Annotation:
Shown here is a 48-nucleotide RNA sequence, a member of the family "gut-2 RNA".

RNA sequence: UGCGGUACAGCAAGUGGGCUGUACUGAGGGCCAAGUGGGGCCGUAAGC
Numbered sequence: 001u002g003c004g005g006u007a008c009a010g011c012a013a014g015u016g017g018g019c020u021g022u023a024c025u026g027a028g029g030g031c032c033a034a035g036u037g038g039g040g041c042c043g044u045a046a047g048c
Stems, first nucleotide, its partner, number of pairs: 004025008029042004